[Rfam]
RNA sequence: CCCCGGACUCGCAUCCGGGGCUUGAACCUACCGUGGCUUCGCCACU
Numbered sequence: 001c002c003c004c005g006g007a008c009u010c011g012c013a014u015c016c017g018g019g020g021c022u023u024g025a026a027c028c029u030a031c032c033g034u035g036g037c038u039u040c041g042c043c044a045c046u
Stems, first nucleotide, its partner, number of pairs: 001020007033045005
RNA: Acido-Lenti-1 RNA